The record is an 80-nucleotide RNA sequence from Elachura formosa, which matches "Small nucleolar RNA SNORD72" in Rfam.
The pairing is the family consensus, mapped onto this sequence.
The literature on the family includes a 2001 paper in EMBO J by Huttenhofer et al., "RNomics: an experimental approach that identifies 201 candidates for novel, small, non-messenger RNAs in mouse".
Gene Ontology terms of the family: nucleolus and RNA processing.
RNA sequence: CAAUUUUUAAUGUGUUUCUUUUUUAAAAAGUCUGAAUAUAUGAACUCUGUAGUGAUUUCAGUGCGUUGCUGAGAUAAAUU
Numbered sequence: 001c002a003a004u005u006u007u008u009a010a011u012g013u014g015u016u017u018c019u020u021u022u023u024u025a026a027a028a029a030g031u032c033u034g035a036a037u038a039u040a041u042g043a044a045c046u047c048u049g050u051a052g053u054g055a056u057u058u059c060a061g062u063g064c065g066u067u068g069c070u071g072a073g074a075u076a077a078a079u080u
Stems, first nucleotide, its partner, number of pairs: 002079001004077002007074002
The source organism's lineage runs through Eukaryota, Aves, Neoaves, Elachuridae and Elachura. Rfam describes the family as follows. snoRNA HBII-240 belongs to the CD family of snoRNAs. It is the human orthologue of the mouse MBII-240 and is predicted to guide 2'O-ribose methylation of the large 28S rRNA at residue U4590. By type it is a C/D-box small nucleolar RNA.